[Rfam]
RNA sequence: CUUCCGGGGAGCGCUGCAAGUUGUGGUUGUGAUCCAGCCAUGCCCCAGGCCCGGAAUUCUCAACGGCGCUCACCUGAU
Numbered sequence: 001c002u003u004c005c006g007g008g009g010a011g012c013g014c015u016g017c018a019a020g021u022u023g024u025g026g027u028u029g030u031g032a033u034c035c036a037g038c039c040a041u042g043c044c045c046c047a048g049g050c051c052c053g054g055a056a057u058u059c060u061c062a063a064c065g066g067c068g069c070u071c072a073c074c075u076g077a078u
Stems, first nucleotide, its partner, number of pairs: 002056006020044001022042008
Rfam assigns this 78-nucleotide RNA sequence from Amantichitinum ursilacus to the family "SAH (S-adenosyl-L-homocysteine) riboswitch aptamer". Its family is annotated with regulation of gene expression and S-adenosylhomocysteine metabolic process in the Gene Ontology.